[Rfam]
RNA: Fungal signal recognition particle RNA
RNA sequence: UAGCUGUAAUGGCUCAAUCGUUUGGGAGUGGGCUAAUCUCUAAUGUUGCUGUUCGCGUGCGACUUCUGACGUACGCUAUACGAUUUUGUCCGGUUCGAAUCCUGUGGUCGGCGGUUUCGUGAGAUACGGGUAACCUGUCUUCGCGUCCGCUCUAAGAAAUUGAGUACACUUGAGUAGAGCAAUCUAGCAGAGGCUUCUUUGCCAUGGGAUGGCGACCCGGAUCACAGAGUCGUGUAUUGAAUGGUGGCUGGGGAUGCGUUAGCCUGCGACCAGAUAUU
Numbered sequence: 001u002a003g004c005u006g007u008a009a010u011g012g013c014u015c016a017a018u019c020g021u022u023u024g025g026g027a028g029u030g031g032g033c034u035a036a037u038c039u040c041u042a043a044u045g046u047u048g049c050u051g052u053u054c055g056c057g058u059g060c061g062a063c064u065u066c067u068g069a070c071g072u073a074c075g076c077u078a079u080a081c082g083a084u085u086u087u088g089u090c091c092g093g094u095u096c097g098a099a100u101c102c103u104g105u106g107g108u109c110g111g112c113g114g115u116u117u118c119g120u121g122a123g124a125u126a127c128g129g130g131u132a133a134c135c136u137g138u139c140u141u142c143g144c145g146u147c148c149g150c151u152c153u154a155a156g157a158a159a160u161u162g163a164g165u166a167c168a169c170u171u172g173a174g175u176a177g178a179g180c181a182a183u184c185u186a187g188c189a190g191a192g193g194c195u196u197c198u199u200u201g202c203c204a205u206g207g208g209a210u211g212g213c214g215a216c217c218c219g220g221a222u223c224a225c226a227g228a229g230u231c232g233u234g235u236a237u238u239g240a241a242u243g244g245u246g247g248c249u250g251g252g253g254a255u256g257c258g259u260u261a262g263c264c265u266g267c268g269a270c271c272a273g274a275u276a277u278u
Base pairs, nucleotide, nucleotide: 002014003013004012020275021274022273023272024271025270030265031264032263033262034261035260036259041250042249046247047246048245049244050243051242052241053240054239055238057074058073059072060071061070063068077236078235079234080233081232082231083230084229085228086227087226088225089224090220091219092218093217095215096214097213099210100209101208102207103206104205105204106203107202115145121141122140123139124138125137126136128135129134151157152156160201162199163198164197169192170191171190176185177184178183